Rfam assigns this 153-nucleotide sequence from Genlisea aurea to the family "small nucleolar RNA snoR137". Rfam classes the family as an H/ACA-box small nucleolar RNA. Gene Ontology terms of the family: nucleolus and RNA processing.
RNA sequence: GUUGCUUCUUACUGAUGAACUCCUUCGGUUUCCACUAAAACGAACGAGGGAUGUUCAUGUUUCUGAAGCAUAAAAAAAAAUGUGGCAGUUUAUAACAGCACGAUGAUGAUUCUCAAUCCCGUUUCAUCGUGUUACCUGUCUCCUGCUACAACC
Numbered sequence: 001g002u003u004g005c006u007u008c009u010u011a012c013u014g015a016u017g018a019a020c021u022c023c024u025u026c027g028g029u030u031u032c033c034a035c036u037a038a039a040a041c042g043a044a045c046g047a048g049g050g051a052u053g054u055u056c057a058u059g060u061u062u063c064u065g066a067a068g069c070a071u072a073a074a075a076a077a078a079a080a081u082g083u084g085g086c087a088g089u090u091u092a093u094a095a096c097a098g099c100a101c102g103a104u105g106a107u108g109a110u111u112c113u114c115a116a117u118c119c120c121g122u123u124u125c126a127u128c129g130u131g132u133u134a135c136c137u138g139u140c141u142c143c144u145g146c147u148a149c150a151a152c153c
Stems, first nucleotide, its partner, number of pairs: 003070006016057005021051007084147005097133003101129005
Rfam 15.1 lists 808 matches to the family in 221 species.